[Rfam]
RNA sequence: AAUAAUAUAAGGCCGAGUUCCCUAUUGGAAGCGGAGGAACCACAUUUUGGGGUUAAUUUUGCCAACAGGCAAAAGGGAUGUUUUUUUCUCUUGUCAUCCUACCCGUCAGCUAACUUCGUAGGCUAAAGCAAGGGUCGAA
Numbered sequence: 001a002a003u004a005a006u007a008u009a010a011g012g013c014c015g016a017g018u019u020c021c022c023u024a025u026u027g028g029a030a031g032c033g034g035a036g037g038a039a040c041c042a043c044a045u046u047u048u049g050g051g052g053u054u055a056a057u058u059u060u061g062c063c064a065a066c067a068g069g070c071a072a073a074a075g076g077g078a079u080g081u082u083u084u085u086u087u088c089u090c091u092u093g094u095c096a097u098c099c100u101a102c103c104c105g106u107c108a109g110c111u112a113a114c115u116u117c118g119u120a121g122g123c124u125a126a127a128g129c130a131a132g133g134g135u136c137g138a139a
Base pairs, nucleotide, nucleotide: 011124012123013122014121018030019029020028031119032118033117034116035115036114041049042048050104051103052102058073059072060071061070076099077098078097079096